[Rfam]
Nucleotides: 131
Base pairs, nucleotide, nucleotide: 011039012038017034018033019032020031021030022029068124070122071121072120073119083111084110087103088102089101
Number, partner (000 for none) and nucleotide at each position: 001000c002000a003000g004000c005000a006000u007000g008000g009000u010000u011039c012038c013000a014000a015000g016000a017034g018033c019032u020031g021030c022029g023000g024000c025000c026000a027000g028000u029022u030021g031020u032019g033018g034017c035000c036000a037000u038012g039011g040000g041000a042000u043000c044000u045000c046000c047000a048000c049000c050000u051000g052000c053000g054000u055000g056000c057000a058000a059000g060000a061000g062000c063000a064000g065000c066000u067000u068124g069000a070122a071121g072120a073119g074000a075000c076000u077000c078000u079000g080000a081000c082000a083111a084110c085000a086000c087103a088102g089101g090000u091000c092000a093000c094000c095000a096000u097000g098000a099000u100000a101089c102088c103087u104000a105000c106000a107000g108000c109000u110084g111083u112000c113000a114000c115000u116000c117000c118000c119073c120072u121071u122070u123000c124068u125000u126000a127000u128000g129000a130000c131000a